[Rfam]
RNA sequence: UUGCACCUUGUAUCGAAUGUCAUGCCUCGUUCUGGUGGCAUGGCUAUUUUUCGAGGUUGCAGAAAGUAAUAGCUGUUCAGUCAGCAAGCGGCCAGACAACCGUUGGGAUAGAUCCACAGUUGUUGCAGACUUUAUCUGUCUUCAGCUACUAAAUCUAUCCUACAAUU
Numbered sequence: 001u002u003g004c005a006c007c008u009u010g011u012a013u014c015g016a017a018u019g020u021c022a023u024g025c026c027u028c029g030u031u032c033u034g035g036u037g038g039c040a041u042g043g044c045u046a047u048u049u050u051u052c053g054a055g056g057u058u059g060c061a062g063a064a065a066g067u068a069a070u071a072g073c074u075g076u077u078c079a080g081u082c083a084g085c086a087a088g089c090g091g092c093c094a095g096a097c098a099a100c101c102g103u104u105g106g107g108a109u110a111g112a113u114c115c116a117c118a119g120u121u122g123u124u125g126c127a128g129a130c131u132u133u134a135u136c137u138g139u140c141u142u143c144a145g146c147u148a149c150u151a152a153a154u155c156u157a158u159c160c161u162a163c164a165a166u167u
Stems, first nucleotide, its partner, number of pairs: 002061004009053002015049003019044008105161008125143001127141002
This 167-nucleotide sequence from Brassica carinata belongs to the Rfam family "small nucleolar RNA snoR143". The literature on the family includes a 2009 paper in Nucleic Acids Res by Chen and Wu, "Mining small RNA sequencing data: a new approach to identify small nucleolar RNAs in Arabidopsis". The match comes from Rfam's covariance-model search (104 bits). Gene Ontology terms of the family: RNA processing and nucleolus. The source organism's lineage runs through Eukaryota, rosids, malvids, Brassicales and Brassica. The family's RNA type in Rfam is H/ACA-box small nucleolar RNA. The family's consensus secondary structure was predicted with RNAalifold.